[Rfam]
RNA sequence: GGGGCUGAUCGGUUUCGACUUUGGUCGUACGACGUAGGAGAAGCGAGCCGAGAAUCCAAGGUCAUCUCGUAAACGUUCCUUGGAAAUCAAUAAGUGCCGAUUCUAAGCGCACUGACUUCGCUCUCGCCGCCUGAGGCGAGCUAAGUGAAGGGUCGGCCUGGGAACGCCUCCGUCCCAGUCACCGGCCUCAGCUAGGAGGCUUGCUCUGUUAGUCCGGUCGCGGGACUGACAGGGGACAUUCACAGCGACUGAGCCUGUCGACGACGUGUCUGUUCGAGCGUCGGGGCUGAGAAAACGACAUAGCAGACUGCGCUCGGAGAAGUCCUACCUCUGCGCUGAAGGACGCGGGUUCGAUUCCCGCCAGCUCCACCA
Number, nucleotide and partner (000 for none) at each position: 001g368002g367003g366004g365005c364006u363007g362008a000009u000010c000011g000012g000013u000014u000015u000016c000017g000018a000019c341020u340021u339022u338023g337024g336025u335026c000027g000028u000029a000030c000031g331032a330033c000034g328035u327036a326037g325038g324039a323040g000041a000042a000043g000044c316045g315046a314047g313048c312049c069050g068051a067052g066053a065054a000055u084056c083057c082058a081059a080060g079061g078062u000063c000064a000065u053066c052067u051068c050069g049070u000071a000072a000073a000074c000075g000076u000077u000078c061079c060080u059081u058082g057083g056084a055085a000086a000087u000088c000089a000090a000091u000092a000093a000094g000095u000096g000097c000098c000099g000100a000101u000102u000103c000104u000105a000106a000107g000108c000109g000110c000111a000112c000113u000114g000115a000116c000117u000118u000119c000120g000121c000122u000123c140124u139125c138126g137127c136128c135129g000130c000131c000132u000133g000134a000135g128136g127137c126138g125139a124140g123141c000142u000143a000144a000145g000146u000147g000148a000149a000150g000151g187152g186153u185154c184155g183156g182157c000158c178159u177160g000161g175162g174163a173164a000165c000166g200167c199168c198169u197170c196171c195172g000173u163174c162175c161176c000177a159178g158179u000180c000181a000182c156183c155184g154185g153186c152187c151188u000189c000190a000191g000192c000193u000194a000195g171196g170197a169198g168199g167200c166201u000202u000203g000204c234205u233206c232207u231208g230209u229210u228211a227212g226213u000214c000215c000216g250217g249218u248219c247220g246221c245222g000223g000224g000225a000226c212227u211228g210229a209230c208231a207232g206233g205234g204235g000236a000237c000238a000239u000240u000241c000242a000243c000244a000245g221246c220247g219248a218249c217250u216251g000252a288253g287254c286255c285256u284257g000258u000259c283260g282261a281262c000263g000264a000265c276266g275267u000268g308269u307270c306271u305272g000273u302274u000275c266276g265277a000278g000279c000280g000281u261282c260283g259284g256285g255286g254287c253288u252289g000290a000291g000292a000293a000294a000295a000296c000297g000298a000299c000300a000301u000302a273303g000304c000305a271306g270307a269308c268309u000310g000311c000312g048313c047314u046315c045316g044317g000318a000319g000320a000321a000322g000323u039324c038325c037326u036327a035328c034329c000330u032331c031332u000333g000334c000335g025336c024337u023338g022339a021340a020341g019342g000343a000344c000345g361346c360347g359348g358349g357350u000351u000352c000353g000354a000355u000356u000357c349358c348359c347360g346361c345362c007363a006364g005365c004366u003367c002368c001369a000370c000371c000372a000

The record is a 372-nucleotide sequence from Mumia sp. ZJ1417, which matches "transfer-messenger RNA" in Rfam. NCBI's taxonomy places the organism under Bacteria, Actinomycetes, Propionibacteriales, Nocardioidaceae, Mumia. It is annotated as a non-coding RNA gene. From the family's description: Bacterial tmRNA, also known as 10Sa RNA or SsrA, is named for its dual tRNA and mRNA-like properties. Its role is to liberate the mRNA from a stalled ribosome. To accomplish this part of the tmRNA is used as a reading frame that ends in a translation stop signal. The broken mRNA is replaced in the ribosome by the tmRNA and translation of the tmRNA leads to addition of a proteolysis tag to the incomplete protein enabling recognition by a protease. The match comes from Rfam's covariance-model search (166 bits).